[Rfam]
RNA sequence: GCGGAUGGCUGGAUGGCCGCGGGCCUUCGGGCUCGAGGAAAGUCCGGACUCCACAAGGCACGGUGCCGGGUAACGCCCGGCCGGGGCAACCCGAGGGAAAGCGCCACAGAGAACAGACCGCCUUGGUUCGCCAAGGUCAGGGUGAAACGGUGGGGUAAGAGCCCACCGCGGGACGGGCAACCGGACCGGCACGGCAAGCCCCACCGGGAGCAAUGCCAAAUAGGGACCUCGCGCGGGUGCUGAUCCGGUUCGCCGGAUAUCGCCGCAGGGACGCCUGACCCCGAGAGGUCCGGGUUGGCAGCUUCAGACGCCGUGGCAACACGGUGUCGAGAUGAAUGGUCAUCGCCGGGGGCAACCCCGGGACAGAAUCCGGCUUACAGGCCAUCCGCGCAA
Numbered sequence: 001g002c003g004g005a006u007g008g009c010u011g012g013a014u015g016g017c018c019g020c021g022g023g024c025c026u027u028c029g030g031g032c033u034c035g036a037g038g039a040a041a042g043u044c045c046g047g048a049c050u051c052c053a054c055a056a057g058g059c060a061c062g063g064u065g066c067c068g069g070g071u072a073a074c075g076c077c078c079g080g081c082c083g084g085g086g087c088a089a090c091c092c093g094a095g096g097g098a099a100a101g102c103g104c105c106a107c108a109g110a111g112a113a114c115a116g117a118c119c120g121c122c123u124u125g126g127u128u129c130g131c132c133a134a135g136g137u138c139a140g141g142g143u144g145a146a147a148c149g150g151u152g153g154g155g156u157a158a159g160a161g162c163c164c165a166c167c168g169c170g171g172g173a174c175g176g177g178c179a180a181c182c183g184g185a186c187c188g189g190c191a192c193g194g195c196a197a198g199c200c201c202c203a204c205c206g207g208g209a210g211c212a213a214u215g216c217c218a219a220a221u222a223g224g225g226a227c228c229u230c231g232c233g234c235g236g237g238u239g240c241u242g243a244u245c246c247g248g249u250u251c252g253c254c255g256g257a258u259a260u261c262g263c264c265g266c267a268g269g270g271a272c273g274c275c276u277g278a279c280c281c282c283g284a285g286a287g288g289u290c291c292g293g294g295u296u297g298g299c300a301g302c303u304u305c306a307g308a309c310g311c312c313g314u315g316g317c318a319a320c321a322c323g324g325u326g327u328c329g330a331g332a333u334g335a336a337u338g339g340u341c342a343u344c345g346c347c348g349g350g351g352g353c354a355a356c357c358c359c360g361g362g363a364c365a366g367a368a369u370c371c372g373g374c375u376u377a378c379a380g381g382c383c384a385u386c387c388g389c390g391c392a393a
Stems, first nucleotide, its partner, number of pairs: 001389010011378001012344007020035006040376003044373005049210004061206005066080005081095001082093004096201002101199002103195003118141002120137007149167006168190001169188003174183003214300004224291006268282003308327008
Rfam assigns this 393-nucleotide RNA sequence from Limimaricola hongkongensis to the family "Bacterial RNase P class A". Ribonuclease P (RNase P) is a ubiquitous endoribonuclease, found in archaea, bacteria and eukarya as well as chloroplasts and mitochondria. NCBI's taxonomy places the organism under Bacteria, Pseudomonadota, Alphaproteobacteria, Rhodobacterales, Limimaricola hongkongensis. Pairs were carried over by alignment from the consensus structure, which is taken from published work.